[Rfam]
RNA sequence: AGUCCGGCCCUGCCCACACGGCACCCGGAGCCGGGGACCCACCAGCACCACCGGGGUGAAUCGAUCCGUACGGCCGCCUCAGGCGGACGUCAGGACCGUAGGGCAAGCCUUCCGUCAUCGACACCGCCCGAACCCGACAGCUAACCCGGUAGGCGGUCCACGGAAGGAGUU
Dot-bracket structure: ..(((((.................)))))((((((....(............)(((.....((.(((.........................))).))..((((.....................))))...))).........)))))).....................